[Rfam]
RNA: Archaeal signal recognition particle RNA
Organism: methanogenic archaeon ISO4-H5
RNA sequence: UGUUAGGCUUGGCCGGGGAGCUUGGCGUGCCCUACACCUGCAAACGUCAUAGCAGGGGUGACAGUGGGGGGCGGCAGAGCUGAAACGGCGGGCCCGCGUAGCGACAAUGAGACUUUGUCCUGUAGAGUCGGAGUAUGCCGAGCGUUGUUCCGGAGGGAGCAUCGGGCGGCACCAAUCGGGGGGAACGGGUCAGGCCCUGACGGGAGCAGCCUUACCUUGAACUACUGACGUUUAUGGGUUAGCAGGGUUGAGGAGCGAUGCGGUAAACCCGUUUGCGGAUGCGAUGUCCACCUUCAUGUGCCUAACA
Number, nucleotide and partner (000 for none) at each position: 001u307002g306003u305004u304005a303006g302007g301008c300009u000010u061011g000012g059013c058014c057015g033016g032017g031018g030019a000020g028021c027022u000023u000024g000025g000026c000027g021028u020029g000030c018031c017032c016033u015034a000035c000036a000037c056038c055039u054040g053041c052042a000043a000044a000045c000046g000047u000048c000049a000050u000051a000052g041053c040054a039055g038056g037057g014058g013059u012060g000061a010062c000063a000064g297065u296066g295067g294068g293069g292070g291071g000072c000073g288074g287075c286076a285077g000078a000079g282080c281081u000082g000083a000084a280085a000086c278087g000088g272089c271090g270091g269092g000093c000094c263095c262096g261097c260098g259099u258100a000101g256102c255103g000104a000105c252106a000107a000108u000109g000110a000111g249112a248113c247114u246115u245116u244117g243118u242119c238120c237121u236122g235123u234124a233125g232126a231127g229128u228129c227130g226131g225132a223133g222134u000135a000136u171137g170138c169139c168140g167141a000142g000143c164144g163145u000146u161147g160148u159149u158150c157151c156152g000153g000154a000155g000156g151157g150158a149159g148160c147161a146162u000163c144164g143165g000166g000167c140168g139169g138170c137171a136172c000173c000174a000175a000176u220177c219178g218179g217180g216181g215182g000183g000184a000185a000186c000187g212188g211189g210190u209191c000192a000193g000194g000195c204196c203197c202198u000199g000200a000201c000202g197203g196204g195205a000206g000207c000208a000209g190210c189211c188212u187213u000214a000215c181216c180217u179218u178219g177220a176221a000222c133223u132224a000225c131226u130227g129228a128229c127230g000231u126232u125233u124234a123235u122236g121237g120238g119239u000240u000241a000242g118243c117244a116245g115246g114247g113248u112249u111250g000251a000252g105253g000254a000255g102256c101257g000258a099259u098260g097261c096262g095263g094264u000265a000266a000267a000268c000269c091270c090271g089272u088273u000274u000275g000276c000277g000278g086279a000280u084281g080282c079283g000284a000285u076286g075287u074288c073289c000290a000291c070292c069293u068294u067295c066296a065297u064298g000299u000300g008301c007302c006303u005304a004305a003306c002307a001